[Rfam]
RNA: Purine riboswitch aptamer
Organism: Clostridium sp. 7_2_43FAA
RNA sequence: AUAAUAUAUAAAAAUAACCUUCCUAUAAGCUUGAUAAUAUGGUUCUGGCGUCUCUACUAUACUACCGUAAAUAGUAUAACUAAGAAGUUAUAAUCCAGAUGA
Number, nucleotide and partner (000 for none) at each position: 001a000002u000003a000004a000005u000006a000007u000008a000009u000010a000011a000012a000013a000014a000015u000016a000017a000018c000019c087020u086021u085022c084023c000024u082025a081026u000027a000028a000029g049030c048031u047032u000033g045034a044035u000036a000037a000038u000039a000040u000041g000042g000043u000044u034045c033046u000047g031048g030049c029050g000051u000052c000053u000054c000055u000056a000057c000058u078059a077060u076061a075062c074063u073064a072065c000066c000067g000068u000069a000070a000071a000072u064073a063074g062075u061076a060077u059078a058079a000080c000081u025082a024083a000084g022085a021086a020087g019088u000089u000090a000091u000092a000093a000094u000095c000096c000097a000098g000099a000100u000101g000102a000